RNA sequence: AAUAAGUGAUGACAAAAUGUUUCGGUCCCAGAUGAGGUCCAGUGAUAAUAAUUAACAUUUUUCUGAUGUU
Numbered sequence: 001a002a003u004a005a006g007u008g009a010u011g012a013c014a015a016a017a018u019g020u021u022u023c024g025g026u027c028c029c030a031g032a033u034g035a036g037g038u039c040c041a042g043u044g045a046u047a048a049u050a051a052u053u054a055a056c057a058u059u060u061u062u063c064u065g066a067u068g069u070u
Stems, first nucleotide, its partner, number of pairs: 001070004
Small nucleolar RNA SNORD73: a 70-nucleotide RNA sequence from Galemys pyrenaicus.
A reference for the family is Rebane et al. (1998), "A novel snoRNA (U73) is encoded within the introns of the human and mouse ribosomal protein S3a genes", Gene.
Rfam classes the family as a C/D-box small nucleolar RNA.
A search with the family's covariance model found it, with a score of 82 bits.